Rfam assigns this 76-nucleotide RNA from Myripristis murdjan to the family "mir-19 microRNA precursor family". The match comes from Rfam's covariance-model search (58 bits). Its Rfam clan is "mir-19 clan". Lineage of the source: Eukaryota > Craniata > Teleostomi > Holocentriformes > Myripristis.
RNA sequence: GUUCUCUGCUAGUUUUGCAUAGUUGCGCUGCAAGAAAAAUUACGUUGUGCAAAUCUAUGCAAAACUGACGGUGGCC
Numbered sequence: 001g002u003u004c005u006c007u008g009c010u011a012g013u014u015u016u017g018c019a020u021a022g023u024u025g026c027g028c029u030g031c032a033a034g035a036a037a038a039a040u041u042a043c044g045u046u047g048u049g050c051a052a053a054u055c056u057a058u059g060c061a062a063a064a065c066u067g068a069c070g071g072u073g074g075c076c
Stems, first nucleotide, its partner, number of pairs: 003074002006071003010067010023052006030045002